[Rfam]
RNA sequence: AGCCUAUGAUGGUUUCAGUAUAAAGAGUAGUGGACAGAAGUGAUUUCUGAAAGCUCUGUGCUGAGGCU
Numbered sequence: 001a002g003c004c005u006a007u008g009a010u011g012g013u014u015u016c017a018g019u020a021u022a023a024a025g026a027g028u029a030g031u032g033g034a035c036a037g038a039a040g041u042g043a044u045u046u047c048u049g050a051a052a053g054c055u056c057u058g059u060g061c062u063g064a065g066g067c068u
Stems, first nucleotide, its partner, number of pairs: 001068004
RNA: Small nucleolar RNA SNORD75